[Rfam]
RNA sequence: GUAACCGUGAGGUUACAUUUGAAGGAAGCGAGACUACAAAACUCGGUACUGACGAACAGAAACCGUAUACAGAGGCAUAUUUACUUGGGUAAGCAAGCACAUCAUUGUAACUCCCCACGAGAAAGAAAAAAGGUAAAUAUGUAGAUAGGUAGUUAUUGAGAGAAAGAAGAUGCC
Numbered sequence: 001g002u003a004a005c006c007g008u009g010a011g012g013u014u015a016c017a018u019u020u021g022a023a024g025g026a027a028g029c030g031a032g033a034c035u036a037c038a039a040a041a042c043u044c045g046g047u048a049c050u051g052a053c054g055a056a057c058a059g060a061a062a063c064c065g066u067a068u069a070c071a072g073a074g075g076c077a078u079a080u081u082u083a084c085u086u087g088g089g090u091a092a093g094c095a096a097g098c099a100c101a102u103c104a105u106u107g108u109a110a111c112u113c114c115c116c117a118c119g120a121g122a123a124a125g126a127a128a129a130a131a132g133g134u135a136a137a138u139a140u141g142u143a144g145a146u147a148g149g150u151a152g153u154u155a156u157u158g159a160g161a162g163a164a165a166g167a168a169g170a171u172g173c174c
Stems, first nucleotide, its partner, number of pairs: 001016006028174001031171001037166001042160005048153004063149002066147003075142003079138007087115003093108004
Shown here is a 174-nucleotide sequence from Flavivirga aquatica, a member of the family "Group II catalytic intron D1-D4-3".
On this family, see Bonen and Vogel, Trends Genet 2001: "The ins and outs of group II introns".
The match comes from Rfam's covariance-model search (107 bits).
About the family: Group II introns are found in rRNA, tRNA and mRNA of organelles in fungi, plants and protists, and also in mRNA in bacteria.
Pairs were carried over by alignment from the consensus structure.